F6 TB sRNA: a 58-nucleotide sequence from Mycobacterium haemophilum. The match comes from Rfam's covariance-model search (52 bits).

RNA sequence: CGGAUGACCCCGUGUUGUGGUCUGAACCCCCGACCCCGACAGCAAUGCGGGGCAUCCU
Numbered sequence: 001c002g003g004a005u006g007a008c009c010c011c012g013u014g015u016u017g018u019g020g021u022c023u024g025a026a027c028c029c030c031c032g033a034c035c036c037c038g039a040c041a042g043c044a045a046u047g048c049g050g051g052g053c054a055u056c057c058u
Stems, first nucleotide, its partner, number of pairs: 002057004008052011020040003